[Rfam]
RNA sequence: CCAGCCGGCCGGACGGCCGCCGCUUCUUGCGGAGGAAAGUCCGGGCUCCACGGAGACACGGCGCCGGAUAACGUCCGGCGGGGGCGACCCCAGGGAAAGCGCCACAGAAAACAAACCGCCAAACGGAGCAGGCUUCGGCUUGCGCCGGCAGGUAAGGGUGAAAUGGUGCGGUAAGAGCGCACCGCGCGCAUGGCGACAUGAGCGGCAAGGCAAGCCCCGCCGGGAGCAAAACCGAAUAGGGGCGACGCGAGGUCUUCGCAAGAAGGGUUCUCAGGUCCGUCUCCGGAUCGUCGCCCGGGUGGGUUGCUCGAGGCGGCCGGCAACGGCCGUCCCAGAGGAAUGGCCGUCACGCGCGCGGUUCGCCGCGCGCCAUACAGAACCCGGCUUACAGGCCGGCUGGCGCU
Numbered sequence: 001c002c003a004g005c006c007g008g009c010c011g012g013a014c015g016g017c018c019g020c021c022g023c024u025u026c027u028u029g030c031g032g033a034g035g036a037a038a039g040u041c042c043g044g045g046c047u048c049c050a051c052g053g054a055g056a057c058a059c060g061g062c063g064c065c066g067g068a069u070a071a072c073g074u075c076c077g078g079c080g081g082g083g084g085c086g087a088c089c090c091c092a093g094g095g096a097a098a099g100c101g102c103c104a105c106a107g108a109a110a111a112c113a114a115a116c117c118g119c120c121a122a123a124c125g126g127a128g129c130a131g132g133c134u135u136c137g138g139c140u141u142g143c144g145c146c147g148g149c150a151g152g153u154a155a156g157g158g159u160g161a162a163a164u165g166g167u168g169c170g171g172u173a174a175g176a177g178c179g180c181a182c183c184g185c186g187c188g189c190a191u192g193g194c195g196a197c198a199u200g201a202g203c204g205g206c207a208a209g210g211c212a213a214g215c216c217c218c219g220c221c222g223g224g225a226g227c228a229a230a231a232c233c234g235a236a237u238a239g240g241g242g243c244g245a246c247g248c249g250a251g252g253u254c255u256u257c258g259c260a261a262g263a264a265g266g267g268u269u270c271u272c273a274g275g276u277c278c279g280u281c282u283c284c285g286g287a288u289c290g291u292c293g294c295c296c297g298g299g300u301g302g303g304u305u306g307c308u309c310g311a312g313g314c315g316g317c318c319g320g321c322a323a324c325g326g327c328c329g330u331c332c333c334a335g336a337g338g339a340a341u342g343g344c345c346g347u348c349a350c351g352c353g354c355g356c357g358g359u360u361c362g363c364c365g366c367g368c369g370c371c372a373u374a375c376a377g378a379a380c381c382c383g384g385c386u387u388a389c390a391g392g393c394c395g396g397c398u399g400g401c402g403c404u
Stems, first nucleotide, its partner, number of pairs: 001400010011389001012348007020032004037387003041384005046226004055282001059222005064078005079093001080091004094217002099215002101211003116157002118153003124147003165183006184206001185204003189200004230305004240296006274289005312331008
Bacterial RNase P class A: a 404-nucleotide sequence from Methylocapsa palsarum. Taxonomically the source falls in Methylocapsa (Bacteria, Pseudomonadota, Hyphomicrobiales, Beijerinckiaceae).